[Rfam]
RNA: A. fumigatus sRNA Afu_254
Organism: Penicillium angulare
RNA sequence: AAAUCAAAUAUCUCCAACUUCAAAGCCUUUCAUAACACUUUUUGUGGUUUAUCCAUCAAACAAUCAAUCAACAUGUCUCCCUGCACCUGCAACUGCUGCUCCGGUGACUGCAAGUCCUGCGCAUGCUCCAGCUGCACUGUAAGUUUAU
Numbered sequence: 001a002a003a004u005c006a007a008a009u010a011u012c013u014c015c016a017a018c019u020u021c022a023a024a025g026c027c028u029u030u031c032a033u034a035a036c037a038c039u040u041u042u043u044g045u046g047g048u049u050u051a052u053c054c055a056u057c058a059a060a061c062a063a064u065c066a067a068u069c070a071a072c073a074u075g076u077c078u079c080c081c082u083g084c085a086c087c088u089g090c091a092a093c094u095g096c097u098g099c100u101c102c103g104g105u106g107a108c109u110g111c112a113a114g115u116c117c118u119g120c121g122c123a124u125g126c127u128c129c130a131g132c133u134g135c136a137c138u139g140u141a142a143g144u145u146u147a148u
Stems, first nucleotide, its partner, number of pairs: 082106003089099003110135003119126002